[Rfam]
RNA sequence: CUCUUAUCAAGAGCGGCGGAGGGAAUGUGCCCGAUGAAGCCCGGCAACCGUCUUUUAAAAGAAAAGGUGCCAAAUCACACGAAGCAAUAUGCUCCGGGAGAUGAGAG
Dot-bracket structure: ((((((((....(.(((...(((..[[[[)))......))))((((.((.(((......)))...))))))...(]]]]((.(((.....))).))..)))))))))
RNA: SAM riboswitch aptamer (S box leader)